[Rfam]
RNA sequence: CCCUCCGAAGUUUCCCUCAGGAUAGCUGGCGCUCGAUCGCAGUUUUAUCCGGUAAAGCGAAUGAUUAGAGGCCUUGGGGACGAAACGACCUCAACCUAUUCUCAAACUUUAAAUGGGUAAGAAGUCCGGCUCGCUCGAUUGGAGCCGGGCCCUAUUCGAAUGCGUGUGCCAAGUGGGCCACUUUUGGUAAGCAGAACUGGCGCUGUGGGAUGAACCAAACGCUCGGUUAAGGUGCCAAACGCAGACGCUCAUCAGACACCAUAAAAGGUGUUGGUUGAUUUAGACAGCAGGACGGUGGCCAUGGAAGUCGGAAUCCGCUAAGGAGUGUGUAACAACUCACCUGCCGAAUCAACCAGCCCUGAAAAUGGAUGGCGCUAGAGCGUCGGACCUAUACCGGGCCGUCUCGGCAAUCGAGUCUGGAAGACAGGCUGAGACGAGUAGGAGGGCCGCUGGGGUGAGCGUGGAAGCCUGGGAAGCGAUUCUGGGUGGAGCCGCCCCGGGUGCAGAU
Numbered sequence: 001c002c003c004u005c006c007g008a009a010g011u012u013u014c015c016c017u018c019a020g021g022a023u024a025g026c027u028g029g030c031g032c033u034c035g036a037u038c039g040c041a042g043u044u045u046u047a048u049c050c051g052g053u054a055a056a057g058c059g060a061a062u063g064a065u066u067a068g069a070g071g072c073c074u075u076g077g078g079g080a081c082g083a084a085a086c087g088a089c090c091u092c093a094a095c096c097u098a099u100u101c102u103c104a105a106a107c108u109u110u111a112a113a114u115g116g117g118u119a120a121g122a123a124g125u126c127c128g129g130c131u132c133g134c135u136c137g138a139u140u141g142g143a144g145c146c147g148g149g150c151c152c153u154a155u156u157c158g159a160a161u162g163c164g165u166g167u168g169c170c171a172a173g174u175g176g177g178c179c180a181c182u183u184u185u186g187g188u189a190a191g192c193a194g195a196a197c198u199g200g201c202g203c204u205g206u207g208g209g210a211u212g213a214a215c216c217a218a219a220c221g222c223u224c225g226g227u228u229a230a231g232g233u234g235c236c237a238a239a240c241g242c243a244g245a246c247g248c249u250c251a252u253c254a255g256a257c258a259c260c261a262u263a264a265a266a267g268g269u270g271u272u273g274g275u276u277g278a279u280u281u282a283g284a285c286a287g288c289a290g291g292a293c294g295g296u297g298g299c300c301a302u303g304g305a306a307g308u309c310g311g312a313a314u315c316c317g318c319u320a321a322g323g324a325g326u327g328u329g330u331a332a333c334a335a336c337u338c339a340c341c342u343g344c345c346g347a348a349u350c351a352a353c354c355a356g357c358c359c360u361g362a363a364a365a366u367g368g369a370u371g372g373c374g375c376u377a378g379a380g381c382g383u384c385g386g387a388c389c390u391a392u393a394c395c396g397g398g399c400c401g402u403c404u405c406g407g408c409a410a411u412c413g414a415g416u417c418u419g420g421a422a423g424a425c426a427g428g429c430u431g432a433g434a435c436g437a438g439u440a441g442g443a444g445g446g447c448c449g450c451u452g453g454g455g456u457g458a459g460c461g462u463g464g465a466a467g468c469c470u471g472g473g474a475a476g477c478g479a480u481u482c483u484g485g486g487u488g489g490a491g492c493c494g495c496c497c498c499g500g501g502u503g504c505a506g507a508u
Base pairs, nucleotide, nucleotide: 001446002445003444004443005442006441011024013022014021015020027171028170029169030168031167032166043122044121045120046119047118048117049116050115055110056108057107062104063103064102067099069097070096071095074094075093076092077091078090079089081087124150125149126148127147128146129145130144131143132142177201178200179199180198182196183195184194185193186192206217207216208215221399222398223397224396225395227393231389232388233387240386242385246382247381248380266360267359268358270357271356272355273354274353275352276351277350278349279348287344288343289342290341291340293317294316295315299311300310318322323338327336328335400436401435402434403433404432405431406430407429408428448503450500451499452498453497454496455495456494457493459492460491467487468486473482474481475480